[Rfam]
Background:
Rfam assigns this 181-nucleotide RNA to the family "c-di-AMP riboswitch aptamer (ydaO/yuaA leader)".
RNA sequence: AUCCUGCCGCCGCCCGGAAUCCGCACAUCGAUCCGUGCUCGGCAGGAGCGGGGGACCCAGGUAGACCGCCGUAUCCGGCACACCGGCCACGGCUCGGGGUGAAGCCGUGCCCGAAAGGGGUGCGGCCGGGCAGCUCCAGCCCGAACCCGACAGCUCACCUCGCAGGCGACGGAGAGGAAUC
Numbered sequence: 001a002u003c004c005u006g007c008c009g010c011c012g013c014c015c016g017g018a019a020u021c022c023g024c025a026c027a028u029c030g031a032u033c034c035g036u037g038c039u040c041g042g043c044a045g046g047a048g049c050g051g052g053g054g055a056c057c058c059a060g061g062u063a064g065a066c067c068g069c070c071g072u073a074u075c076c077g078g079c080a081c082a083c084c085g086g087c088c089a090c091g092g093c094u095c096g097g098g099g100u101g102a103a104g105c106c107g108u109g110c111c112c113g114a115a116a117g118g119g120g121u122g123c124g125g126c127c128g129g130g131c132a133g134c135u136c137c138a139g140c141c142c143g144a145a146c147c148c149g150a151c152a153g154c155u156c157a158c159c160u161c162g163c164a165g166g167c168g169a170c171g172g173a174g175a176g177g178a179a180u181c
Base pairs, nucleotide, nucleotide: 002047003046004045005044006043007042008041009040048163049162050161051160052159053158058096097148098147099146105125106124107123108122109121110120128142129141130140131139